The record is a 105-nucleotide RNA, which matches "cow-rumen-2 RNA" in Rfam. The sequence is in the family's curated seed alignment.
RNA sequence: GAAGGAUGAGCGAGUAGCGACCGCUCAAUAUGCCGUCAUGCGUUUUAUUGAAUAAAGCCCAGGUACAGGAUGACCGCCUGGUAAGUCAAUUUGUAAAAUCGCCUG
Numbered sequence: 001g002a003a004g005g006a007u008g009a010g011c012g013a014g015u016a017g018c019g020a021c022c023g024c025u026c027a028a029u030a031u032g033c034c035g036u037c038a039u040g041c042g043u044u045u046u047a048u049u050g051a052a053u054a055a056a057g058c059c060c061a062g063g064u065a066c067a068g069g070a071u072g073a074c075c076g077c078c079u080g081g082u083a084a085g086u087c088a089a090u091u092u093g094u095a096a097a098a099u100c101g102c103c104u105g
Stems, first nucleotide, its partner, number of pairs: 007027006042099001043097002047090005059081004064076001068075002